This 133-nucleotide sequence from Oryctolagus cuniculus belongs to the Rfam family "Small nucleolar RNA SNORA38".

RNA sequence: UCCUCCUACAAAGGUGUGUCUGUGGUUCCCUGUCUUUGAACAUGUAAGAAUUGGAGGCAAAGUAAUAUGGACUUGGGGAAAUUCUGGGACCAUCUUGCUACCCCGCAGGCUUGAGACCAGCCAUCCCACAUUG
Numbered sequence: 001u002c003c004u005c006c007u008a009c010a011a012a013g014g015u016g017u018g019u020c021u022g023u024g025g026u027u028c029c030c031u032g033u034c035u036u037u038g039a040a041c042a043u044g045u046a047a048g049a050a051u052u053g054g055a056g057g058c059a060a061a062g063u064a065a066u067a068u069g070g071a072c073u074u075g076g077g078g079a080a081a082u083u084c085u086g087g088g089a090c091c092a093u094c095u096u097g098c099u100a101c102c103c104c105g106c107a108g109g110c111u112u113g114a115g116a117c118c119a120g121c122c123a124u125c126c127c128a129c130a131u132u133g
Stems, first nucleotide, its partner, number of pairs: 002057005015044005021038001024030002069126003073123001092111001094109005
About the family: ACA38 is a member of the H/ACA class of snoRNA that guide the sites of modification of uridines to pseudouridines. The organism belongs to Oryctolagus, within Eukaryota.